[Rfam]
RNA: RAGATH-18 RNA
RNA sequence: CCCUUGGAGUGUCAUAGCAAACAAAAGUAGCCGAGGCAAAAUUGGACACAUAGAAGGGGGAA
Numbered sequence: 001c002c003c004u005u006g007g008a009g010u011g012u013c014a015u016a017g018c019a020a021a022c023a024a025a026a027g028u029a030g031c032c033g034a035g036g037c038a039a040a041a042u043u044g045g046a047c048a049c050a051u052a053g054a055a056g057g058g059g060g061a062a
Stems, first nucleotide, its partner, number of pairs: 001060005009049005022044003030037002